[Rfam]
RNA: ZMP/ZTP riboswitch aptamer (pfl RNA motif)
Organism: Cellulomonas gilvus
RNA sequence: GUGCCCCGUCGCGACUGGCGCAACGGGGUGGGUCACCACCGGGGAGCGACGAAGCAGCUGGACCACGGGGUCGGACGCCUGGGCCCUCGGU
Numbered sequence: 001g002u003g004c005c006c007c008g009u010c011g012c013g014a015c016u017g018g019c020g021c022a023a024c025g026g027g028g029u030g031g032g033u034c035a036c037c038a039c040c041g042g043g044g045a046g047c048g049a050c051g052a053a054g055c056a057g058c059u060g061g062a063c064c065a066c067g068g069g070g071u072c073g074g075a076c077g078c079c080u081g082g083g084c085c086c087u088c089g090g091u
Stems, first nucleotide, its partner, number of pairs: 003055002007051006015043002017079004028039004068086005